[Rfam]
RNA: DUF3800-IX RNA
RNA sequence: UAUCCAAGUUCCGAACUGACACCGUAUGGUGCGCGUGCCCGAAAGGGCUAGGGCUUGGAUUCCUU
Dot-bracket structure: .(((((((.(((....((.((((....))))..)).((((....))))..)))))))))).....